Rfam assigns this 89-nucleotide RNA sequence to the family "SAM-I/IV (S-adenosyl methionine) riboswitch aptamer". The sequence is in the family's curated seed alignment. Pairs were carried over by alignment from the consensus structure, which is taken from published work. Gene Ontology terms of the family: regulation of gene expression and S-adenosylmethionine metabolic process.
RNA sequence: AAAAAGCAUGGAGAGAGGUUAAGCCUCAGCAACCUAGAAAGCUAACUAAGGUGCUUUAAGUAUGUGGUUUGAAACAAAAAAUAGCUUUU
Dot-bracket structure: .....(((((....(((((...)))))(((..(((((..[[.[..)).))).))).....))))).(((...)))........].]]..